[Rfam]
RNA sequence: UCUUCGGUGAUGAUUAACACAGACUUUCGUUCUUCUGAGCCUAUUGAAGCCAACAUUUCUGUCCUGAGAAGA
Numbered sequence: 001u002c003u004u005c006g007g008u009g010a011u012g013a014u015u016a017a018c019a020c021a022g023a024c025u026u027u028c029g030u031u032c033u034u035c036u037g038a039g040c041c042u043a044u045u046g047a048a049g050c051c052a053a054c055a056u057u058u059c060u061g062u063c064c065u066g067a068g069a070a071g072a
Base pairs, nucleotide, nucleotide: 001072002071003070005068
Shown here is a 72-nucleotide RNA sequence from Salarias fasciatus, a member of the family "Small nucleolar RNA SNORD59". Its Rfam clan is "SNORD59 clan". The family's consensus secondary structure was predicted with ILM. It scores 73 bits against the family's covariance model. Rfam links the family to the GO terms nucleolus and RNA processing. A reference for the family is Galardi et al. (2002), "Purified box C/D snoRNPs are able to reproduce site-specific 2'-O-methylation of target RNA in vitro", Mol Cell Biol.